[Rfam]
RNA sequence: GUGCCUGCGGGAUGAACAGGUCCCAAUAUUUACUACCAUUUUGCUCACUUUGUCAGCUAUUAUUCACAUUAUUAGCUGAUCAUUUAAGGAUGGGAAAUUC
Numbered sequence: 001g002u003g004c005c006u007g008c009g010g011g012a013u014g015a016a017c018a019g020g021u022c023c024c025a026a027u028a029u030u031u032a033c034u035a036c037c038a039u040u041u042u043g044c045u046c047a048c049u050u051u052g053u054c055a056g057c058u059a060u061u062a063u064u065c066a067c068a069u070u071a072u073u074a075g076c077u078g079a080u081c082a083u084u085u086a087a088g089g090a091u092g093g094g095a096a097a098u099u100c
Stems, first nucleotide, its partner, number of pairs: 036093005052080008
Small nucleolar RNA snoR99: a 100-nucleotide RNA from Zea mays. Rfam links the family to the GO terms nucleolus and RNA processing. The organism belongs to Zea, within Eukaryota. By type it is an H/ACA-box small nucleolar RNA.